RNA sequence: UGGCUGUCGUGGUCAAAAAGUUAGGAGGUUGCCUUGAGCCUUGGGCGUCGCUUCACACUCCACUUGUUCACGUGUGCCUUACUCGGAAUUUCGGGUCGCUCAUCCUACUCGUGUGUGUAAACCACGAUUGCUAGGGGGCGUUAAGCAAUGGAGAUGACCCUUGAGGGAAGCAAUUCUGCAGAGACAUCCCCACCCGGAGUUGGCGAUGUGAGAUUACACCGUGGCAAGAUAUGCGCAGUUUCGGGCUUGUUGGGCAAUCAACUUUUUU
Numbered sequence: 001u002g003g004c005u006g007u008c009g010u011g012g013u014c015a016a017a018a019a020g021u022u023a024g025g026a027g028g029u030u031g032c033c034u035u036g037a038g039c040c041u042u043g044g045g046c047g048u049c050g051c052u053u054c055a056c057a058c059u060c061c062a063c064u065u066g067u068u069c070a071c072g073u074g075u076g077c078c079u080u081a082c083u084c085g086g087a088a089u090u091u092c093g094g095g096u097c098g099c100u101c102a103u104c105c106u107a108c109u110c111g112u113g114u115g116u117g118u119a120a121a122c123c124a125c126g127a128u129u130g131c132u133a134g135g136g137g138g139c140g141u142u143a144a145g146c147a148a149u150g151g152a153g154a155u156g157a158c159c160c161u162u163g164a165g166g167g168a169a170g171c172a173a174u175u176c177u178g179c180a181g182a183g184a185c186a187u188c189c190c191c192a193c194c195c196g197g198a199g200u201u202g203g204c205g206a207u208g209u210g211a212g213a214u215u216a217c218a219c220c221g222u223g224g225c226a227a228g229a230u231a232u233g234c235g236c237a238g239u240u241u242c243g244g245g246c247u248u249g250u251u252g253g254g255c256a257a258u259c260a261a262c263u264u265u266u267u268u
Stems, first nucleotide, its partner, number of pairs: 001015004016266007028258005037247005043241004049235002065226002068224005074219003078212005083206003087201009097140001100138002104135002106130002109127005115122002141145001149192003153188003160183003167176003
RNA: Fungal signal recognition particle RNA
Organism: Capronia epimyces